[Rfam]
RNA sequence: UAGCUUUGUCCUAAGUCAAACUUGUCUAACUUUGACCAAGGUUAGAAAAACAUUAAUAUUUACAAUAUCAAAUACAUGCACUAUCAAUAUAUAUUUCACAGUCUAUCUAGUGAAUCUAGUUUGAUGUUGUAGAUAUUUGUGCAUUUUUCUAUAAACUUGGUCAAAGCUAGAGAAGUUUGACUUGGGACAAAGCUAA
Numbered sequence: 001u002a003g004c005u006u007u008g009u010c011c012u013a014a015g016u017c018a019a020a021c022u023u024g025u026c027u028a029a030c031u032u033u034g035a036c037c038a039a040g041g042u043u044a045g046a047a048a049a050a051c052a053u054u055a056a057u058a059u060u061u062a063c064a065a066u067a068u069c070a071a072a073u074a075c076a077u078g079c080a081c082u083a084u085c086a087a088u089a090u091a092u093a094u095u096u097c098a099c100a101g102u103c104u105a106u107c108u109a110g111u112g113a114a115u116c117u118a119g120u121u122u123g124a125u126g127u128u129g130u131a132g133a134u135a136u137u138u139g140u141g142c143a144u145u146u147u148u149c150u151a152u153a154a155a156c157u158u159g160g161u162c163a164a165a166g167c168u169a170g171a172g173a174a175g176u177u178u179g180a181c182u183u184g185g186g187a188c189a190a191a192g193c194u195a196a
Stems, first nucleotide, its partner, number of pairs: 005191005011185013025171002031165005043151008051141003055137010068124006
A member of the RNA family "MIR1435 microRNA precursor family" from Setaria italica, 196 nucleotides long. It scores 131 bits against the family's covariance model. Rfam links the family to the GO terms RISC complex and miRNA-mediated post-transcriptional gene silencing.